MIR168 microRNA precursor family: a 152-nucleotide sequence from Rosa chinensis. Taxonomically the source falls in Rosa (Eukaryota, Viridiplantae, Streptophytina, Mesangiospermae). A reference for the family is Jagadeeswaran et al. (2009), "Cloning and characterization of small RNAs from Medicago truncatula reveals four novel legume-specific microRNA families", New Phytol. Rfam links the family to the GO terms RISC complex and miRNA-mediated post-transcriptional gene silencing.

[Rfam]
RNA sequence: UUACUGGCGGGUCUCUAAUUCGCUUGGUGCAGGUCGGGAACUGCUUCGGUUUAUAGAUAUCAGAGCCAGGUGGCGCGACGCCGCUGGCUGGCUGCGAUUUCCAGCGGAGCGGGUCCCGCCUUGCAUCAACUGAAUCGGAGACCGCGGUAAUA
Numbered sequence: 001u002u003a004c005u006g007g008c009g010g011g012u013c014u015c016u017a018a019u020u021c022g023c024u025u026g027g028u029g030c031a032g033g034u035c036g037g038g039a040a041c042u043g044c045u046u047c048g049g050u051u052u053a054u055a056g057a058u059a060u061c062a063g064a065g066c067c068a069g070g071u072g073g074c075g076c077g078a079c080g081c082c083g084c085u086g087g088c089u090g091g092c093u094g095c096g097a098u099u100u101c102c103a104g105c106g107g108a109g110c111g112g113g114u115c116c117c118g119c120c121u122u123g124c125a126u127c128a129a130c131u132g133a134a135u136c137g138g139a140g141a142c143c144g145c146g147g148u149a150a151u152a
Base pairs, nucleotide, nucleotide: 014139015138018135019134020133021132024129025128026127027126028125029124030123031122032121033120035118036117037116038115039114041112042111043110044109045108046107047106048105